This 128-nucleotide sequence from Suricata suricatta belongs to the Rfam family "U5 spliceosomal RNA".
[Rfam]
RNA sequence: AUACUCUGGUUUCUCUUCAGAUCACAUAAAUCUUUCGCCUUUUAAUAAGAUUCAGUCAAAGAUUUCAGUAACGUGGUCAUUCUAUUGAAUCCUAAACUGGGGUAAUUUUUGGUAAUUACUCAGUAAUU
Numbered sequence: 001a002u003a004c005u006c007u008g009g010u011u012u013c014u015c016u017u018c019a020g021a022u023c024a025c026a027u028a029a030a031u032c033u034u035u036c037g038c039c040u041u042u043u044a045a046u047a048a049g050a051u052u053c054a055g056u057c058a059a060a061g062a063u064u065u066c067a068g069u070a071a072c073g074u075g076g077u078c079a080u081u082c083u084a085u086u087g088a089a090u091c092c093u094a095a096a097c098u099g100g101g102g103u104a105a106u107u108u109u110u111g112g113u114a115a116u117u118a119c120u121c122a123g124u125a126a127u128u
Base pairs, nucleotide, nucleotide: 003090005088006087012076013075015073017071019069028065029064030063031062032061033060034059035058114128115127116126117125118124119123

Notes: Its family is annotated with U5 snRNP and spliceosomal tri-snRNP complex assembly in the Gene Ontology. Lineage of the source: Eukaryota > Metazoa > Theria > Feliformia > Suricata. It scores 45 bits against the family's covariance model.